[Rfam]
The family of this 110-nucleotide RNA from Allopseudospirillum japonicum is "TPP riboswitch aptamer (THI element)".

RNA sequence: UUUGUCUUGACGGGGUGUGAUCUGCAUCAAUUUUUUGCUAGAUCGCUGAGAUUAUACCCGUGGAACCUGAACCGGAUCAUACCGGCGUAGGAAUCAAGUCUUUGUGUUUC
Dot-bracket structure: .....(((((((((.(((((((((..............)))))))).......)..)))).....((((..((((......))))..))))..)))))............
About this RNA
A search with the family's covariance model found it, with a score of 70 bits. For this family Rfam cites "Comparative genomics of thiamin biosynthesis in procaryotes. New genes and regulatory mechanisms" (Rodionov et al., J Biol Chem, 2002). The organism belongs to Allopseudospirillum, within Bacteria. About the family: Vitamin B(1) in its active form thiamin pyrophosphate (TPP) is an essential coenzyme that is synthesised by coupling of pyrimidine and thiazole moieties in bacteria. The previously detected thiamin-regulatory element, thi box was extended, resulting in a new, highly conserved RNA secondary structure, the THI element, which is widely distributed in eubacteria and also occurs in some archaea.